[Rfam]
RNA sequence: CACGGUUACAUGGAGUAGCGGAAAACCGGCUUUUCAGUUUUCAGGUGAAAGACAACCGAUGUAAAAGGAGUUGUACUCCCCUGGGUGGAAAUCCCUAAAACUGCCCUUUGAUGCCCUUACACGGACGCUUCUUGCAUGGUGGGGGAUGUGCCUGACCCCAUUUCAUGUGCAAGUGCAAAGCAGAUUAGACGGCACCCAACAAGACAUCUGUACAAAGGAGCGAAUACUUUUUUAUGACCAG
Numbered sequence: 001c002a003c004g005g006u007u008a009c010a011u012g013g014a015g016u017a018g019c020g021g022a023a024a025a026c027c028g029g030c031u032u033u034u035c036a037g038u039u040u041u042c043a044g045g046u047g048a049a050a051g052a053c054a055a056c057c058g059a060u061g062u063a064a065a066a067g068g069a070g071u072u073g074u075a076c077u078c079c080c081c082u083g084g085g086u087g088g089a090a091a092u093c094c095c096u097a098a099a100a101c102u103g104c105c106c107u108u109u110g111a112u113g114c115c116c117u118u119a120c121a122c123g124g125a126c127g128c129u130u131c132u133u134g135c136a137u138g139g140u141g142g143g144g145g146a147u148g149u150g151c152c153u154g155a156c157c158c159c160a161u162u163u164c165a166u167g168u169g170c171a172a173g174u175g176c177a178a179a180g181c182a183g184a185u186u187a188g189a190c191g192g193c194a195c196c197c198a199a200c201a202a203g204a205c206a207u208c209u210g211u212a213c214a215a216a217g218g219a220g221c222g223a224a225u226a227c228u229u230u231u232u233u234a235u236g237a238c239c240a241g
Base pairs, nucleotide, nucleotide: 004057005056006055007054019045083095084094085093103221104220105218106217107216108215109214110213112212113176114175116173117172118171120169121168122167127135128134138162139161140160141159142158143157144156180211181210182209183208184207186206188197
Overview
The family of this 241-nucleotide sequence from Colidextribacter sp. OB.20 is "RT-2 RNA". It is annotated as a small RNA. A search with the family's covariance model found it, with a score of 160 bits.